This 125-nucleotide RNA from Arachis duranensis belongs to the Rfam family "Plastid-psbA-1 3UTR RNA". For this family Rfam cites "Retrograde signaling in plants: A critical review focusing on the GUN pathway and beyond" (Richter et al., Plant Commun, 2023). It scores 64 bits against the family's covariance model. It is annotated as a cis-regulatory element. The family is grouped with related families in Rfam's "Plastid-psbA 3UTR RNA clan". Lineage of the source: Eukaryota > eudicotyledons > Gunneridae > Papilionoideae > Arachis.
[Rfam]
RNA sequence: UCGAGGCUCCAUCUCUAAAUGGAUAAUAUUUUUGUCUUAAAGGAUACGAAUUUUUGAGAGUAAAGGAGCAAUAUAAAAAAUAAUAUCAUUUUAGUUUCAUUCGUGGUUUUCGUAGCUGCUCUUUU
Numbered sequence: 001u002c003g004a005g006g007c008u009c010c011a012u013c014u015c016u017a018a019a020u021g022g023a024u025a026a027u028a029u030u031u032u033u034g035u036c037u038u039a040a041a042g043g044a045u046a047c048g049a050a051u052u053u054u055u056g057a058g059a060g061u062a063a064a065g066g067a068g069c070a071a072u073a074u075a076a077a078a079a080a081u082a083a084u085a086u087c088a089u090u091u092u093a094g095u096u097u098c099a100u101u102c103g104u105g106g107u108u109u110u111c112g113u114a115g116c117u118g119c120u121c122u123u124u125u
Stems, first nucleotide, its partner, number of pairs: 008023005062125009072114003076110004